Record summary:
mir-393 microRNA precursor family: a 119-nucleotide RNA sequence from Glycine max. The literature on the family includes a 2012 paper in J Plant Physiol by Kruszka et al., "Role of microRNAs and other sRNAs of plants in their changing environments". The source organism's lineage runs through Eukaryota, Viridiplantae, Streptophyta, Fabaceae and Glycine subgen. Soja. The base pairs follow the family's consensus structure.
RNA sequence: GGAGGAGGCAUCCAAAGGGAUCGCAUUGAUCCCAAAUCCAAGCUUCAAUAUUCUUCUCUCUUUCCCACUCAAAAUAUUAAUUUUAUUUGGGAUCAUGCUAUCCCUUUGGAUUUCUCCUU
Numbered sequence: 001g002g003a004g005g006a007g008g009c010a011u012c013c014a015a016a017g018g019g020a021u022c023g024c025a026u027u028g029a030u031c032c033c034a035a036a037u038c039c040a041a042g043c044u045u046c047a048a049u050a051u052u053c054u055u056c057u058c059u060c061u062u063u064c065c066c067a068c069u070c071a072a073a074a075u076a077u078u079a080a081u082u083u084u085a086u087u088u089g090g091g092a093u094c095a096u097g098c099u100a101u102c103c104c105u106u107u108g109g110a111u112u113u114c115u116c117c118u119u
Base pairs, nucleotide, nucleotide: 002119003118004117005116006115008113010111011110012109013108014107015106016105017104018103019102020101021100023098024097025096026095028094029093030092031091032090036087